This 87-nucleotide RNA from Gossypium mustelinum belongs to the Rfam family "MIR7486 microRNA precursor family". It scores 84 bits against the family's covariance model. NCBI's taxonomy places the organism under Eukaryota, rosids, Malvales, Malvaceae, Gossypium.
[Rfam]
RNA sequence: CACGUCAGCGCGAGUUGCUAACAUGGCAACAAAUCGCGCCCUCUAGGACGCGAUUUUUUGCCACGUCAGCAAAACGCGCUGACGUGG
Numbered sequence: 001c002a003c004g005u006c007a008g009c010g011c012g013a014g015u016u017g018c019u020a021a022c023a024u025g026g027c028a029a030c031a032a033a034u035c036g037c038g039c040c041c042u043c044u045a046g047g048a049c050g051c052g053a054u055u056u057u058u059u060g061c062c063a064c065g066u067c068a069g070c071a072a073a074a075c076g077c078g079c080u081g082a083c084g085u086g087g
Stems, first nucleotide, its partner, number of pairs: 001086012015072005021066001024063006031056008040047002